[Rfam]
RNA: DUF805 RNA
Organism: Flavobacterium sp. GT3R68
RNA sequence: UUAAAGUGGAACCCAGAAACCACCACAAAAACGGGCGACACCGAAAAGCCUUAUGAGUAGCAAACAA
Number, nucleotide and partner (000 for none) at each position: 001u000002u000003a000004a000005a000006g023007u022008g021009g020010a000011a000012c000013c000014c000015a000016g000017a000018a000019a000020c009021c008022a007023c006024c000025a000026c000027a000028a000029a000030a000031a000032c000033g000034g050035g049036c048037g000038a000039c000040a000041c000042c060043g000044a000045a000046a000047a000048g036049c035050c034051u000052u000053a000054u000055g000056a000057g000058u000059a000060g042061c000062a000063a000064a000065c000066a000067a000